This 105-nucleotide RNA sequence from Desulfocicer vacuolatum belongs to the Rfam family "TPP riboswitch aptamer (THI element)".

[Rfam]
Nucleotides: 105
Stems, first nucleotide, its partner, number of pairs: 006093005011055004016049001017028004035048005061086004068079003
Number, partner (000 for none) and nucleotide at each position: 001000a002000a003000g004000u005000u006093u007092u008091g009090c010089u011055g012054g013053g014052g015000g016049a017028g018027c019026u020025u021000u022000g023000a024000a025020a026019g027018g028017c029000u030000g031000a032000g033000a034000a035048g036047g037046a038045a039044a040000a041000u042000a043000a044039u045038u046037u047036c048035c049016u050000g051000a052014c053013c054012c055011u056000u057000g058000g059000a060000a061086c062085c063084u064083g065000a066000u067000g068079c069078g070077g071000u072000u073000a074000g075000u076000a077070c078069c079068g080000a081000c082000g083064u084063a085062g086061g087000g088000a089010a090009g091008c092007g093006a094000a095000u096000c097000a098000u099000g100000c101000c102000u103000g104000a105000u
The match comes from Rfam's covariance-model search (81 bits).
NCBI's taxonomy places the organism under Bacteria, Pseudomonadati, Desulfobacteria, Desulfocicer, Desulfocicer vacuolatum.